A member of the RNA family "bZIP non canonical Hac1/Xbp1 intron" from Thermochaetoides thermophila, 73 nucleotides long. The base pairs follow the family's consensus structure, which was predicted with RNAfold. Rfam classes the family as a small RNA. The organism belongs to Thermochaetoides thermophila, within Eukaryota. From the family's description: bZIP intron RNA is a non-canonical intron that was first reported in HAC1 gene in yeast and XBP1 gene in Metazoa.
RNA sequence: CGUCUCCCCCGACUCGACACAACAUCCUGCAGCGAUGUUGUGUGACGACCUGCAGUGUCAGUUGGCGGAGGCG
Numbered sequence: 001c002g003u004c005u006c007c008c009c010c011g012a013c014u015c016g017a018c019a020c021a022a023c024a025u026c027c028u029g030c031a032g033c034g035a036u037g038u039u040g041u042g043u044g045a046c047g048a049c050c051u052g053c054a055g056u057g058u059c060a061g062u063u064g065g066c067g068g069a070g071g072c073g
Stems, first nucleotide, its partner, number of pairs: 001073007009065005021039006047059003
Rfam 15.1 lists 1,325 matches to the family in 1,320 species.